[Rfam]
RNA sequence: GGUCUUAAUGAUGAAUUGGAGGAAGUCAUUGUUGAGAAAACGAAACAGACAUUGGCUUCUAUCACUUCUGGACCCAAACAUACUCA
Numbered sequence: 001g002g003u004c005u006u007a008a009u010g011a012u013g014a015a016u017u018g019g020a021g022g023a024a025g026u027c028a029u030u031g032u033u034g035a036g037a038a039a040a041c042g043a044a045a046c047a048g049a050c051a052u053u054g055g056c057u058u059c060u061a062u063c064a065c066u067u068c069u070g071g072a073c074c075c076a077a078a079c080a081u082a083c084u085c086a
Base pairs, nucleotide, nucleotide: 001074002073004071005070008067010065022059023058025056026055027054028053030051031050032049033048
Shown here is an 86-nucleotide sequence from Enterovirus betarhino, a member of the family "Human rhinovirus internal cis-acting regulatory element (CRE)". The literature on the family includes a 1998 paper in RNA by McKnight and Lemon, "The rhinovirus type 14 genome contains an internally located RNA structure that is required for viral replication". Rfam's curators write: This family represents a cis-acting regulatory element (CRE) from the human rhinoviruses. The family's RNA type in Rfam is cis-regulatory element. The organism belongs to Rhinovirus B, within Viruses.